A member of the RNA family "Xanthine riboswitch aptamer (NMT1 RNA)", 80 nucleotides long.
RNA sequence: GGCAAGAGUAGAAGCGUUCACUGCGCAGCCCUUCAUGCCGUGGAGCAUGAGGGCCAGGCCAGCCGGAAAUUGCUCUUGAA
Dot-bracket structure: ....((((((....[..((.(((..(..............................)..)))..]))...))))))....
The literature on the family includes a 2020 paper in RNA by Yu and Breaker, "A bacterial riboswitch class senses xanthine and uric acid to regulate genes associated with purine oxidation". The family's consensus secondary structure is taken from published work.